Ascomycota telomerase RNA: a 388-nucleotide part of an RNA from Fusarium flagelliforme. The family is grouped with related families in Rfam's "Telomerase clan". For this family Rfam cites "The common ancestral core of vertebrate and fungal telomerase RNAs" (Qi et al., Nucleic Acids Res, 2013). Taxonomically the source falls in Fusarium incarnatum-equiseti species complex (Eukaryota, Pezizomycotina, sordariomyceta, Fusarium). Rfam classes the family as a non-coding RNA gene.
[Rfam]
RNA sequence: AAUCACAAAGAAGGAGUUCUCUUGGCGGUGUCGGUAUGUUUUAGACUGCGUUCUGUCAUGACGGCCUCCCGGAGGAAUCGCGUCGGCGAAAGUAUCAUAUCAGUAUGGGAUUGCUAGUUCACGAGACAGUCUUCGCCUUUGCAAAUGGCCACCGUGGCGCGCCAAUGCUUCUGGUCGACGUUGGAAGCAGUAUUGGGACCCAUCUCGAGUUGGAGUCAAAGCUUUGUGCUUGUCUGAUACUGUGGACGGCCCUUCCAUCGAGUUGAGGAUCGUGCCUCUGGGUUGCACUGGUGAGGCUGGGUUGUAGCAUUGGAUCUAGGACAGGCUUAGUUGGCGAGGUAGUCCUGGCUGUCCUCUCUCCUGAAAAUGGUGUGGAGGUCAGCCCCCC
Numbered sequence: 001a002a003u004c005a006c007a008a009a010g011a012a013g014g015a016g017u018u019c020u021c022u023u024g025g026c027g028g029u030g031u032c033g034g035u036a037u038g039u040u041u042u043a044g045a046c047u048g049c050g051u052u053c054u055g056u057c058a059u060g061a062c063g064g065c066c067u068c069c070c071g072g073a074g075g076a077a078u079c080g081c082g083u084c085g086g087c088g089a090a091a092g093u094a095u096c097a098u099a100u101c102a103g104u105a106u107g108g109g110a111u112u113g114c115u116a117g118u119u120c121a122c123g124a125g126a127c128a129g130u131c132u133u134c135g136c137c138u139u140u141g142c143a144a145a146u147g148g149c150c151a152c153c154g155u156g157g158c159g160c161g162c163c164a165a166u167g168c169u170u171c172u173g174g175u176c177g178a179c180g181u182u183g184g185a186a187g188c189a190g191u192a193u194u195g196g197g198a199c200c201c202a203u204c205u206c207g208a209g210u211u212g213g214a215g216u217c218a219a220a221g222c223u224u225u226g227u228g229c230u231u232g233u234c235u236g237a238u239a240c241u242g243u244g245g246a247c248g249g250c251c252c253u254u255c256c257a258u259c260g261a262g263u264u265g266a267g268g269a270u271c272g273u274g275c276c277u278c279u280g281g282g283u284u285g286c287a288c289u290g291g292u293g294a295g296g297c298u299g300g301g302u303u304g305u306a307g308c309a310u311u312g313g314a315u316c317u318a319g320g321a322c323a324g325g326c327u328u329a330g331u332u333g334g335c336g337a338g339g340u341a342g343u344c345c346u347g348g349c350u351g352u353c354c355u356c357u358c359u360c361c362u363g364a365a366a367a368u369g370g371u372g373u374g375g376a377g378g379u380c381a382g383c384c385c386c387c388c
Base pairs, nucleotide, nucleotide: 197217198216199215200213201212202211219231220230221229222228